This 71-nucleotide RNA from Denticeps clupeoides belongs to the Rfam family "mir-451 microRNA precursor family". Rfam links the family to the GO terms miRNA-mediated post-transcriptional gene silencing and RISC complex. A reference for the family is Zhu et al. (2008), "Role of MicroRNA miR-27a and miR-451 in the regulation of MDR1/P-glycoprotein expression in human cancer cells", Biochem Pharmacol. Lineage of the source: Eukaryota > Chordata > Actinopteri > Clupeocephala > Denticeps.
RNA sequence: CCGAGAGUGGCGGUCAAACCGUUACCAUUACUGAGUUUAGUAAUGGUAAGGGUUCUACUGCCUCUUCUCAC
Numbered sequence: 001c002c003g004a005g006a007g008u009g010g011c012g013g014u015c016a017a018a019c020c021g022u023u024a025c026c027a028u029u030a031c032u033g034a035g036u037u038u039a040g041u042a043a044u045g046g047u048a049a050g051g052g053u054u055c056u057a058c059u060g061c062c063u064c065u066u067c068u069c070a071c
Stems, first nucleotide, its partner, number of pairs: 007064001009062001011060003017054004022049012